[Rfam]
A member of the RNA family "Small nucleolar RNA SNORA56" from Ornithorhynchus anatinus, 130 nucleotides long.

RNA sequence: AGGCAGAUGGUUAUCCCUCUCUAGUCUGAUCCAGUGUCUCUAGAGGGAGUCAGUCUGCAAAAUCAACUGGGGGCCCUGUUUCCGUCCAGCAUCAUGGUUCUUUGAUGAUGGUUUCAGACCUGCCAUACAU
Numbered sequence: 001a002g003g004c005a006g007a008u009g010g011u012u013a014u015c016c017c018u019c020u021c022u023a024g025u026c027u028g029a030u031c032c033a034g035u036g037u038c039u040c041u042a043g044a045g046g047g048a049g050u051c052a053g054u055c056u057g058c059a060a061a062a063u064c065a066a067c068u069g070g071g072g073g074c075c076c077u078g079u080u081u082c083c084g085u086c087c088a089g090c091a092u093c094a095u096g097g098u099u100c101u102u103u104g105a106u107g108a109u110g111g112u113u114u115c116a117g118a119c120c121u122g123c124c125a126u127a128c129a130u
Stems, first nucleotide, its partner, number of pairs: 003058006020044005026036001068125003071121003076117002084112003090107005097102001
Lineage of the source: Eukaryota > Metazoa > Gnathostomata > Mammalia > Ornithorhynchus. Pairs were carried over by alignment from the consensus structure.